A member of the RNA family "U8 small nucleolar RNA" from Spermophilus dauricus, 138 nucleotides long. Rfam classes the family as a C/D-box small nucleolar RNA. The source organism's lineage runs through Eukaryota, Vertebrata, Sciuromorpha, Xerinae and Spermophilus. It scores 99 bits against the family's covariance model. Pairs were carried over by alignment from the consensus structure, which is taken from published work. Rfam links the family to the GO terms RNA processing and nucleolus.

[Rfam]
RNA sequence: UCAUCAGGUAGGAUAAUCCUUACCAUUCCUCCUUCUAGAGGGCAGUUGGAACAUGAUGAUUGGAGUUCAUGGGAUAUUUGAUUAGUGUUUCUGCAUAAUCACGACUUGCAACACCCUGAUUAAUUCUACCUAUCUGAU
Numbered sequence: 001u002c003a004u005c006a007g008g009u010a011g012g013a014u015a016a017u018c019c020u021u022a023c024c025a026u027u028c029c030u031c032c033u034u035c036u037a038g039a040g041g042g043c044a045g046u047u048g049g050a051a052c053a054u055g056a057u058g059a060u061u062g063g064a065g066u067u068c069a070u071g072g073g074a075u076a077u078u079u080g081a082u083u084a085g086u087g088u089u090u091c092u093g094c095a096u097a098a099u100c101a102c103g104a105c106u107u108g109c110a111a112c113a114c115c116c117u118g119a120u121u122a123a124u125u126c127u128a129c130c131u132a133u134c135u136g137a138u
Stems, first nucleotide, its partner, number of pairs: 024045001027042005073091002076088002079084001095127001097121005103115001